[Rfam]
RNA: Group II catalytic intron D1-D4-1
Organism: Trinickia symbiotica
RNA sequence: CUACCGGCGUCGAGAGGCGCUGGGAUGGCUGUGCAGAAGUCAGCCGAGGCCAUAGUAGGUGCGGUAUGACCGAAGGGC
Numbered sequence: 001c002u003a004c005c006g007g008c009g010u011c012g013a014g015a016g017g018c019g020c021u022g023g024g025a026u027g028g029c030u031g032u033g034c035a036g037a038a039g040u041c042a043g044c045c046g047a048g049g050c051c052a053u054a055g056u057a058g059g060u061g062c063g064g065u066a067u068g069a070c071c072g073a074a075g076g077g078c
Base pairs, nucleotide, nucleotide: 001027004023005022006021007020008019009018010017011016040047041046049078050077051076058071059070060069